RNA sequence: AGUGGUGGUAGAGGUGCAAAAACCAAGAGUAAAUUAUCGUAGGAUGAUGAGGUCCAGUAAUGAUAAUUAAAAGGGGAAUUUGCCGAAGUGUAACACUCGCUCACGAGUUUUAUGCUGGACCUGCAUUGAAGAAAUGUAGGGCUGUCACACAGUCACCCCAAUGAUUGUGUGGAGAACUAUCUCACGU
Numbered sequence: 001a002g003u004g005g006u007g008g009u010a011g012a013g014g015u016g017c018a019a020a021a022a023c024c025a026a027g028a029g030u031a032a033a034u035u036a037u038c039g040u041a042g043g044a045u046g047a048u049g050a051g052g053u054c055c056a057g058u059a060a061u062g063a064u065a066a067u068u069a070a071a072a073g074g075g076g077a078a079u080u081u082g083c084c085g086a087a088g089u090g091u092a093a094c095a096c097u098c099g100c101u102c103a104c105g106a107g108u109u110u111u112a113u114g115c116u117g118g119a120c121c122u123g124c125a126u127u128g129a130a131g132a133a134a135u136g137u138a139g140g141g142c143u144g145u146c147a148c149a150c151a152g153u154c155a156c157c158c159c160a161a162u163g164a165u166u167g168u169g170u171g172g173a174g175a176a177c178u179a180u181c182u183c184a185c186g187u
Base pairs, nucleotide, nucleotide: 007181008180009179010178011177016083017082018081019080020079023076024075032068033067034066035065036064037063038062039061087116088115089114090113091112092111093110095108096107097106098105117143118142120140121139122138123137124136125135126134127133145172146171147170148169149168150167151166152165153164154163
Shown here is a 187-nucleotide RNA from Anaerobacillus alkaliphilus, a member of the family "Lysine riboswitch aptamer". From the family's description: Riboswitches are metabolite binding domains within certain messenger RNAs that serve as precision sensors for their corresponding targets. Lineage of the source: Bacteria > Bacillati > Caryophanales > Bacillaceae > Anaerobacillus.